transfer-messenger RNA: a 368-nucleotide RNA sequence from Mucilaginibacter gracilis.
RNA sequence: GGGCUCGACCGGAAUUGACAGGAUGGAGAUAAGUAGGUAAGCAUGCAGCGCGUUGGGUGAAUUAGCGCUUUAAUCUGAACGCUCAAACUUUCAAAUGGCGAAAAUCAAUUUGCCUUAGCUGCUUAAUUUAGAAUUAACUAGCUUUUGUCCCGCCGGUGUUCUGUUUCAUUGAACUGGCAAUAGGGGCACCGACAAAUGAAACUGGCUUGCCAAAGGUGCGAUAAGCGAGCGAGAACAAGCACAUACGGAGGACGGUACAGGUGAGCGGCUAACCUUCCCCUUCCCGACAAUUGAAUAGCAGAUAAGCAUGUAGAAAGCAUACCUUAUACCAUGUUUGGACGAGGGUUCGAAUCCCUCCGGGUCCACAA
Numbered sequence: 001g002g003g004c005u006c007g008a009c010c011g012g013a014a015u016u017g018a019c020a021g022g023a024u025g026g027a028g029a030u031a032a033g034u035a036g037g038u039a040a041g042c043a044u045g046c047a048g049c050g051c052g053u054u055g056g057g058u059g060a061a062u063u064a065g066c067g068c069u070u071u072a073a074u075c076u077g078a079a080c081g082c083u084c085a086a087a088c089u090u091u092c093a094a095a096u097g098g099c100g101a102a103a104a105u106c107a108a109u110u111u112g113c114c115u116u117a118g119c120u121g122c123u124u125a126a127u128u129u130a131g132a133a134u135u136a137a138c139u140a141g142c143u144u145u146u147g148u149c150c151c152g153c154c155g156g157u158g159u160u161c162u163g164u165u166u167c168a169u170u171g172a173a174c175u176g177g178c179a180a181u182a183g184g185g186g187c188a189c190c191g192a193c194a195a196a197u198g199a200a201a202c203u204g205g206c207u208u209g210c211c212a213a214a215g216g217u218g219c220g221a222u223a224a225g226c227g228a229g230c231g232a233g234a235a236c237a238a239g240c241a242c243a244u245a246c247g248g249a250g251g252a253c254g255g256u257a258c259a260g261g262u263g264a265g266c267g268g269c270u271a272a273c274c275u276u277c278c279c280c281u282u283c284c285c286g287a288c289a290a291u292u293g294a295a296u297a298g299c300a301g302a303u304a305a306g307c308a309u310g311u312a313g314a315a316a317g318c319a320u321a322c323c324u325u326a327u328a329c330c331a332u333g334u335u336u337g338g339a340c341g342a343g344g345g346u347u348c349g350a351a352u353c354c355c356u357c358c359g360g361g362u363c364c365a366c367a368a
Stems, first nucleotide, its partner, number of pairs: 001364007019337004023332004030326003033322003037318002042310005047069005054085006118142004146188006153177004159173003164201007202233002205230006217247002253286003257282001260279002263276003269301002341357005
Notes
The family's consensus secondary structure is taken from published work.